[Rfam]
RNA sequence: GCAGACUCACUCUGUACCGAACUGCAGUCUUCAGUUUAGGUGCUUUUUCUGUCUGCGAGAGUAAUAGUUCACAGGUGUGACAAAUGCCUUCUUUCUUGUAGAAGGAUGUUACAACUGCUUUUGGGACAUUGCU
Numbered sequence: 001g002c003a004g005a006c007u008c009a010c011u012c013u014g015u016a017c018c019g020a021a022c023u024g025c026a027g028u029c030u031u032c033a034g035u036u037u038a039g040g041u042g043c044u045u046u047u048u049c050u051g052u053c054u055g056c057g058a059g060a061g062u063a064a065u066a067g068u069u070c071a072c073a074g075g076u077g078u079g080a081c082a083a084a085u086g087c088c089u090u091c092u093u094u095c096u097u098g099u100a101g102a103a104g105g106a107u108g109u110u111a112c113a114a115c116u117g118c119u120u121u122u123g124g125g126a127c128a129u130u131g132c133u
Base pairs, nucleotide, nucleotide: 001056002055003054004053005052006051014043015042016041017040018039020037022034023033024032069124070123071122073120074119075118077115078114082110085108086107088105089104
RNA: Small nucleolar RNA SNORA77